Rfam assigns this 134-nucleotide sequence from Alkalibaculum sporogenes to the family "Ribosomal protein L20 leader". The organism belongs to Alkalibaculum, within Bacteria. This family is a putative r-protein leader autoregulatory structure found in B. subtilis and other low-GC Gram-positive bacteria. It is located in the 5' untranslated regions of mRNAs encoding initiation factor 3 followed by ribosomal proteins L35 and L20 (infC-rpmI-rplT). A Rho-independent transcription terminator structure that is probably involved in regulation is included at the 3' end. Pairs were carried over by alignment from the consensus structure, which was predicted with CMfinder.
RNA sequence: AAAAGAAAGUAGAAGUUCGCUUCUCACCUUGGAGUUCAUCUGAGCACAGGUAAAUAUUACGUGAUUUAAUUGUAAUUUAUUAUACGUGUAUAUUUAUGAGCAGAUAGAAUUUCUAUCUGCUCUUUAUUUAUGGC
Number, nucleotide and partner (000 for none) at each position: 001a000002a000003a000004a000005g000006a000007a000008a000009g000010u000011a024012g023013a022014a021015g020016u000017u000018c000019g000020c015021u014022u013023c012024u011025c000026a051027c050028c049029u000030u000031g000032g000033a000034g045035u044036u043037c042038a000039u000040c000041u000042g037043a036044g035045c034046a000047c000048a000049g028050g027051u026052a000053a000054a000055u000056a000057u000058u000059a000060c000061g000062u000063g000064a000065u000066u000067u000068a000069a000070u000071u000072g000073u000074a000075a000076u000077u000078u000079a000080u000081u000082a000083u000084a000085c000086g000087u000088g000089u000090a000091u000092a000093u000094u000095u000096a000097u000098g000099a121100g120101c119102a118103g117104a116105u115106a114107g113108a112109a000110u000111u000112u108113c107114u106115a105116u104117c103118u102119g101120c100121u099122c000123u000124u000125u000126a000127u000128u000129u000130a000131u000132g000133g000134c000